The record is a 136-nucleotide RNA sequence from Xenopus laevis, which matches "Small nucleolar RNA SNORA29" in Rfam.
The family is grouped with related families in Rfam's "SNORA20 clan".
By type it is an H/ACA-box small nucleolar RNA.
Pairs were carried over by alignment from the consensus structure, which was predicted with PFOLD.
NCBI's taxonomy places the organism under Eukaryota, Eumetazoa, Vertebrata, Pipidae, Xenopus.

RNA sequence: GUUCCCAUUUUAGUACCGCUUUUUUGCUUUCCAGAACAGGCGGCUAUGCUAAUGGGAUAGAGAAAAAUUGCUAUGGUCUGAAAGGGAAGAUGAUUUAUUGCAGCUUCCCUCAUAUGAAGUAGCAGUACAUAUUUUG
Dot-bracket structure: ...((((........((((....................)))).........)))).............((((...............((.(................)))........)))).............
Numbered sequence: 001g002u003u004c005c006c007a008u009u010u011u012a013g014u015a016c017c018g019c020u021u022u023u024u025u026g027c028u029u030u031c032c033a034g035a036a037c038a039g040g041c042g043g044c045u046a047u048g049c050u051a052a053u054g055g056g057a058u059a060g061a062g063a064a065a066a067a068u069u070g071c072u073a074u075g076g077u078c079u080g081a082a083a084g085g086g087a088a089g090a091u092g093a094u095u096u097a098u099u100g101c102a103g104c105u106u107c108c109c110u111c112a113u114a115u116g117a118a119g120u121a122g123c124a125g126u127a128c129a130u131a132u133u134u135u136g
Stems, first nucleotide, its partner, number of pairs: 004056004016043004070123004089111002092109001